The record is a 62-nucleotide RNA from Mycolicibacterium brumae, which matches "Actino-pnp RNA" in Rfam. NCBI's taxonomy places the organism under Bacteria, Actinomycetes, Mycobacteriales, Mycobacteriaceae, Mycobacterium (subgen. Mycolicibacterium). It is annotated as a cis-regulatory element.
RNA sequence: GCCGGUCUUCGGUAGUGGCUGCCGGAUCUGCACAGAUCCGGCCGCUUCGAUCGACGGCCGCA
Numbered sequence: 001g002c003c004g005g006u007c008u009u010c011g012g013u014a015g016u017g018g019c020u021g022c023c024g025g026a027u028c029u030g031c032a033c034a035g036a037u038c039c040g041g042c043c044g045c046u047u048c049g050a051u052c053g054a055c056g057g058c059c060g061c062a
Stems, first nucleotide, its partner, number of pairs: 003060005009054005017046003021042009
Dot-bracket structure: ..(((((.(((((...(((.(((((((((....))))))))).)))...))))).)))))..